[Rfam]
RNA sequence: AUGAGCCUUACAGGGGCAACAUGAGAUCACAUGUGGGCAUUCUUAUUAUUCACGUGACACCCUUUCUACUUGUGUUCAUGUGUCCUAUAGGCUUUAAAUGUGUUCUCAGGUCGCCCCUGCAGGACUUUC
Dot-bracket structure: ......((..((((.((.(...((((.(((((.................................................................))))).))))...).)).))))..))......
MIR398 microRNA precursor family: a 129-nucleotide RNA from Juglans regia. The match comes from Rfam's covariance-model search (64 bits). Its family is annotated with miRNA-mediated post-transcriptional gene silencing and RISC complex in the Gene Ontology. For this family Rfam cites "Computational identification of plant microRNAs and their targets, including a stress-induced miRNA" (Jones-Rhoades and Bartel, Mol Cell, 2004).